[Rfam]
RNA sequence: ACAGGUGUUUGUUAUCCUUGUGAUGUCAAGCAUGGAUGUCACAUGGUAGUAUCUGAGGGUCUGU
Numbered sequence: 001a002c003a004g005g006u007g008u009u010u011g012u013u014a015u016c017c018u019u020g021u022g023a024u025g026u027c028a029a030g031c032a033u034g035g036a037u038g039u040c041a042c043a044u045g046g047u048a049g050u051a052u053c054u055g056a057g058g059g060u061c062u063g064u
Stems, first nucleotide, its partner, number of pairs: 001064006008057002016046002019043006025031002